[Rfam]
RNA sequence: UGAUAAAAAGAUAAAAUGCUGAUAUAUGUUAGUAUUAUGGACUAAUGUUUCUACAUCUUACCGUCAUUAAGAUACUAUAGAGCAUAAUUUUUUUUGU
Numbered sequence: 001u002g003a004u005a006a007a008a009a010g011a012u013a014a015a016a017u018g019c020u021g022a023u024a025u026a027u028g029u030u031a032g033u034a035u036u037a038u039g040g041a042c043u044a045a046u047g048u049u050u051c052u053a054c055a056u057c058u059u060a061c062c063g064u065c066a067u068u069a070a071g072a073u074a075c076u077a078u079a080g081a082g083c084a085u086a087a088u089u090u091u092u093u094u095u096g097u
Stems, first nucleotide, its partner, number of pairs: 018083003022078003029045005055073006
RNA: Purine riboswitch aptamer
Organism: Spiroplasma endosymbiont of Megaselia nigra